[Rfam]
RNA: SAH (S-adenosyl-L-homocysteine) riboswitch aptamer
Organism: Streptosporangium carneum
RNA sequence: CAGGCCGAGAGGCGCUGCAACGGGCCUUCGCCCGCCACGCUCGGCCUGCAUGACGACAACAAGGGCGCCUCCUCAGG
Numbered sequence: 001c002a003g004g005c006c007g008a009g010a011g012g013c014g015c016u017g018c019a020a021c022g023g024g025c026c027u028u029c030g031c032c033c034g035c036c037a038c039g040c041u042c043g044g045c046c047u048g049c050a051u052g053a054c055g056a057c058a059a060c061a062a063g064g065g066c067g068c069c070u071c072c073u074c075a076g077g
Base pairs, nucleotide, nucleotide: 002047003046004045005044006043007042008041021034022033023032024031025030